[Rfam]
RNA: M-box riboswitch aptamer (ykoK leader)
RNA sequence: AGAUAUUCUCGGUAGGUGAGGCUACUAUUAGGAUAUGGAUUACUGCCGUAAAAAAAUGGAAACAUUUUGCACUGGUUAACAGAUUUUGUCGAAAAUAAGGCUUAAUCUAAUGUAAUUUCACGCCUAAUAGAGUUAAAACUUGAACGGGUACGUAA
Numbered sequence: 001a002g003a004u005a006u007u008c009u010c011g012g013u014a015g016g017u018g019a020g021g022c023u024a025c026u027a028u029u030a031g032g033a034u035a036u037g038g039a040u041u042a043c044u045g046c047c048g049u050a051a052a053a054a055a056a057u058g059g060a061a062a063c064a065u066u067u068u069g070c071a072c073u074g075g076u077u078a079a080c081a082g083a084u085u086u087u088g089u090c091g092a093a094a095a096u097a098a099g100g101c102u103u104a105a106u107c108u109a110a111u112g113u114a115a116u117u118u119c120a121c122g123c124c125u126a127a128u129a130g131a132g133u134u135a136a137a138a139c140u141u142g143a144a145c146g147g148g149u150a151c152g153u154a155a
Base pairs, nucleotide, nucleotide: 006150008148009147010146011145013098015140016139017138020134021133022132025130026129027128028127029126030125031124032123039116040115041114042113043112046074048072049071055066056065057064058063082107083106084105085104088101089100090099